[Rfam]
RNA: Fluoride riboswitch aptamer (crcB RNA motif)
RNA sequence: CUGACCUCGGGAGAUGGCAUUCCUCCUGACAACCGCCCUUCGGGGCUAAUGAUGCCUACAGGCCC
Numbered sequence: 001c002u003g004a005c006c007u008c009g010g011g012a013g014a015u016g017g018c019a020u021u022c023c024u025c026c027u028g029a030c031a032a033c034c035g036c037c038c039u040u041c042g043g044g045g046c047u048a049a050u051g052a053u054g055c056c057u058a059c060a061g062g063c064c065c
Stems, first nucleotide, its partner, number of pairs: 010026004016056006035046004
Dot-bracket structure: .........[[[[..((((((.]]]]........((((....))))....)))))).........